[Rfam]
RNA sequence: CGUACCCUAGCUGGAGAGAGAUGUCCGCGCCCCAGGUGCAGGCCAUCCACCGAAGGAGCAAACCGCACGGCCAGCCAGGGCGUUGCGGCGAAUCUCUCAGGUAAAGCGGACAGCAGGCAAAUC
Numbered sequence: 001c002g003u004a005c006c007c008u009a010g011c012u013g014g015a016g017a018g019a020g021a022u023g024u025c026c027g028c029g030c031c032c033c034a035g036g037u038g039c040a041g042g043c044c045a046u047c048c049a050c051c052g053a054a055g056g057a058g059c060a061a062a063c064c065g066c067a068c069g070g071c072c073a074g075c076c077a078g079g080g081c082g083u084u085g086c087g088g089c090g091a092a093u094c095u096c097u098c099a100g101g102u103a104a105a106g107c108g109g110a111c112a113g114c115a116g117g118c119a120a121a122u123c
Stems, first nucleotide, its partner, number of pairs: 007117002010114004020047004049102003052098002056096003063088005